[Rfam]
RNA sequence: AAUGCAAGCCGUUCUAUCGCUGUCCCGAUUUAUCGAGAGAGAGGAAAGUCCGGGCAACAUAGAGCAUCUCGCUUCCUAACGGGAAGGCGUUUAGGAUUGAAUGCCUAAACGACAGAAAGUGCCACAGAAAAUAUACCGUCCCGACUUUAAGUUGGGAUAAGGGUGAAAACGUGAGGUAAGAGCUCACGAUCUCGCUAAGUGAUUAGCGAUUUGGUAAACCUCGGGAGUUGAAAGACCAAAUAGGCUAACGCAUGUAGGGCGGCUCGUUCGAUGUUAGUGGGUAGGUCGUUAGAGCUAAACGGCAACGUUUAGACUGGAUUAAUGAUAGAAUUCCGAUUUAUCGGAAACAGAACCCGGCUUACAGGCUUGUAUUUUUU
Numbered sequence: 001a002a003u004g005c006a007a008g009c010c011g012u013u014c015u016a017u018c019g020c021u022g023u024c025c026c027g028a029u030u031u032a033u034c035g036a037g038a039g040a041g042a043g044g045a046a047a048g049u050c051c052g053g054g055c056a057a058c059a060u061a062g063a064g065c066a067u068c069u070c071g072c073u074u075c076c077u078a079a080c081g082g083g084a085a086g087g088c089g090u091u092u093a094g095g096a097u098u099g100a101a102u103g104c105c106u107a108a109a110c111g112a113c114a115g116a117a118a119g120u121g122c123c124a125c126a127g128a129a130a131a132u133a134u135a136c137c138g139u140c141c142c143g144a145c146u147u148u149a150a151g152u153u154g155g156g157a158u159a160a161g162g163g164u165g166a167a168a169a170c171g172u173g174a175g176g177u178a179a180g181a182g183c184u185c186a187c188g189a190u191c192u193c194g195c196u197a198a199g200u201g202a203u204u205a206g207c208g209a210u211u212u213g214g215u216a217a218a219c220c221u222c223g224g225g226a227g228u229u230g231a232a233a234g235a236c237c238a239a240a241u242a243g244g245c246u247a248a249c250g251c252a253u254g255u256a257g258g259g260c261g262g263c264u265c266g267u268u269c270g271a272u273g274u275u276a277g278u279g280g281g282u283a284g285g286u287c288g289u290u291a292g293a294g295c296u297a298a299a300c301g302g303c304a305a306c307g308u309u310u311a312g313a314c315u316g317g318a319u320u321a322a323u324g325a326u327a328g329a330a331u332u333c334c335g336a337u338u339u340a341u342c343g344g345a346a347a348c349a350g351a352a353c354c355c356g357g358c359u360u361a362c363a364g365g366c367u368u369g370u371a372u373u374u375u376u377u
Stems, first nucleotide, its partner, number of pairs: 001373010011362001012330007020041002023038002026035003046360003050357005055230004062265004067226005072086005087113001088111008114221002119219002121215003136162002138158009170188006192209007234287004244278006257269004295312007

The record is a 377-nucleotide RNA from Pedobacter cryotolerans, which matches "Bacterial RNase P class A" in Rfam. The organism belongs to Pedobacter, within Bacteria. By type it is a ribozyme.